[Rfam]
Rfam assigns this 76-nucleotide sequence from Sanguibacter antarcticus to the family "Actino-pnp RNA".
Nucleotides: 076
Base pairs, nucleotide, nucleotide: 003074004073005072006071007070009068010067011066012065013064017060018059019058020057021056022055023054024053025052026051027050
Number, partner (000 for none) and nucleotide at each position: 001000u002000u003074c004073g005072g006071u007070c008000c009068u010067c011066g012065g013064u014000a015000g016000u017060g018059a019058c020057c021056u022055a023054c024053g025052g026051a027050g028000c029000a030000g031000c032000a033000c034000g035000c036000g037000c038000c039000c040000u041000g042000c043000g044000c045000g046000a047000c048000c049000a050027c051026u052025c053024c054023g055022u056021g057020g058019g059018u060017u061000u062000c063000g064013a065012u066011c067010g068009a069000a070007g071006a072005c073004c074003g075000c076000c
The organism belongs to Sanguibacter, within Bacteria. A search with the family's covariance model found it, with a score of 59 bits. The base pairs follow the family's consensus structure, which is taken from published work.